This 79-nucleotide sequence from Laticauda laticaudata belongs to the Rfam family "Mammalian CPEB3 ribozyme". Lineage of the source: Eukaryota > Gnathostomata > Sauropsida > Squamata > Laticauda. The family's consensus secondary structure is taken from published work.

[Rfam]
RNA sequence: AAAGCGAGCUUGCGGGCCAUAGAAGGAGCAUUCACAUCGCGGCCCCCUGUCAGGUAUCUGUUUACCUGCGAAUCCUUCU
Numbered sequence: 001a002a003a004g005c006g007a008g009c010u011u012g013c014g015g016g017c018c019a020u021a022g023a024a025g026g027a028g029c030a031u032u033c034a035c036a037u038c039g040c041g042g043c044c045c046c047c048u049g050u051c052a053g054g055u056a057u058c059u060g061u062u063u064a065c066c067u068g069c070g071a072a073u074c075c076u077u078c079u
Stems, first nucleotide, its partner, number of pairs: 012047001014045005021079007028040002051068006